[Rfam]
This 95-nucleotide sequence belongs to the Rfam family "PhotoRC-II RNA". Pairs were carried over by alignment from the consensus structure, which is taken from published work. The family's RNA type in Rfam is cis-regulatory element.
RNA sequence: UCACCAUUCUUGCACCCGUUAACCGAGACCUAUGGGUGGUUAAAUUACGUCUCUCAUAUCCAGUAGUGAAGGGAUUACUGGAAAUAUAGUUUCGC
Number, nucleotide and partner (000 for none) at each position: 001u000002c000003a000004c000005c000006a000007u000008u000009c000010u000011u000012g000013c038014a037015c036016c035017c034018g033019u000020u000021a000022a000023c000024c000025g053026a052027g051028a050029c049030c000031u000032a000033u018034g017035g016036g015037u014038g013039g000040u000041u000042a000043a000044a000045u000046u000047a000048c000049g029050u028051c027052u026053c025054u000055c000056a000057u000058a000059u000060c081061c080062a079063g078064u077065a076066g075067u000068g000069a000070a000071g000072g000073g000074a000075u066076u065077a064078c063079u062080g061081g060082a000083a000084a000085u000086a000087u000088a000089g000090u000091u000092u000093c000094g000095c000